[Rfam]
RNA sequence: CAGCGAAAAGGGCAAACUCACCGAAAGGUGGGGGCGCAAAGCCAUAGGGUCUAAGGUGCUUUUGCACUAUGACAGCCUGGUUGCCGCU
Numbered sequence: 001c002a003g004c005g006a007a008a009a010g011g012g013c014a015a016a017c018u019c020a021c022c023g024a025a026a027g028g029u030g031g032g033g034g035c036g037c038a039a040a041g042c043c044a045u046a047g048g049g050u051c052u053a054a055g056g057u058g059c060u061u062u063u064g065c066a067c068u069a070u071g072a073c074a075g076c077c078u079g080g081u082u083g084c085c086g087c088u
Base pairs, nucleotide, nucleotide: 012037013036017032018031019030020029021028022027040082041081042080043079046078047077048076049073050072051071056067057066058065059064
The family of this 88-nucleotide RNA from Thermosediminibacter oceani is "c-di-GMP-I riboswitch aptamer". Gene Ontology term of the family: cyclic-di-GMP binding. It scores 84 bits against the family's covariance model.